[Rfam]
RNA sequence: UAAAUUAGCAAUCGGCCUGAAUCUGUUGCUGCAAGCAUUUUAUAGUGAUAUUUGGAGCGUUACUAUGUCUUUAAGUGUUGAAGCGAAAGCGAAAUGUGUUUCUGAUUUCGGUCGUGAUAUC
Numbered sequence: 001u002a003a004a005u006u007a008g009c010a011a012u013c014g015g016c017c018u019g020a021a022u023c024u025g026u027u028g029c030u031g032c033a034a035g036c037a038u039u040u041u042a043u044a045g046u047g048a049u050a051u052u053u054g055g056a057g058c059g060u061u062a063c064u065a066u067g068u069c070u071u072u073a074a075g076u077g078u079u080g081a082a083g084c085g086a087a088a089g090c091g092a093a094a095u096g097u098g099u100u101u102c103u104g105a106u107u108u109c110g111g112u113c114g115u116g117a118u119a120u121c
Stems, first nucleotide, its partner, number of pairs: 001028003051075007